[Rfam]
RNA: Y RNA
RNA sequence: GGCUAGCCUGAGAGCAGUGGUGCUUACAACUAAGUGAUCACAACCAGUUACAGAUUGCUUUGUUCCUUCUCCACUGCUUCACUUGACUAGCCUUAA
Numbered sequence: 001g002g003c004u005a006g007c008c009u010g011a012g013a014g015c016a017g018u019g020g021u022g023c024u025u026a027c028a029a030c031u032a033a034g035u036g037a038u039c040a041c042a043a044c045c046a047g048u049u050a051c052a053g054a055u056u057g058c059u060u061u062g063u064u065c066c067u068u069c070u071c072c073a074c075u076g077c078u079u080c081a082c083u084u085g086a087c088u089a090g091c092c093u094u095a096a
Stems, first nucleotide, its partner, number of pairs: 001092006008085001010084002014080001016075005028064003032060004